Notes: Lysine riboswitch aptamer: a 169-nucleotide RNA sequence from Intestinibacter bartlettii. A search with the family's covariance model found it, with a score of 103 bits. The literature on the family includes a 2003 paper in Cell by Mandal et al., "Riboswitches Control Fundamental Biochemical Pathways in Bacillus subtilis and Other Bacteria". Riboswitches are metabolite binding domains within certain messenger RNAs that serve as precision sensors for their corresponding targets. Lineage of the source: Bacteria > Bacillati > Peptostreptococcales > Intestinibacter > Intestinibacter bartlettii.

RNA sequence: UAGUAAGGUAGAGGUGCAAUAUACAAUAGUACAAAUGACGAGGGAAGCUGAUGACUUAUUUCGAAAGGGUAUGUUGCCGAAGUAUAUAGGCGAUACUUUAAACCUAUAUAACUGGGGGUAUAUAAAAUAUAUAUAUCACUGUCACUAAAUGUGGAGAGCUAUCAAAACU
Number, nucleotide and partner (000 for none) at each position: 001u000002a000003g000004u000005a000006a000007g163008g162009u161010a160011g159012a000013g000014g000015u000016g077017c076018a075019a074020u073021a072022u071023a070024c069025a000026a000027u000028a000029g000030u000031a000032c000033a061034a060035a059036u058037g057038a056039c000040g000041a000042g000043g000044g000045a000046a000047g000048c000049u000050g000051a000052u000053g000054a000055c000056u038057u037058a036059u035060u034061u033062c000063g000064a000065a000066a000067g000068g000069g024070u023071a022072u021073g020074u019075u018076g017077c016078c000079g000080a000081a113082g112083u111084a109085u108086a107087u106088a105089g104090g103091c000092g000093a000094u000095a000096c000097u000098u000099u000100a000101a000102a000103c090104c089105u088106a087107u086108a085109u084110a000111a083112c082113u081114g140115g139116g000117g137118g136119u135120a134121u133122a132123u131124a130125a000126a000127a000128u000129a000130u124131a123132u122133a121134u120135a119136u118137c117138a000139c115140u114141g000142u154143c153144a152145c151146u000147a000148a000149a000150u000151g145152u144153g143154g142155a000156g000157a000158g000159c011160u010161a009162u008163c007164a000165a000166a000167a000168c000169u000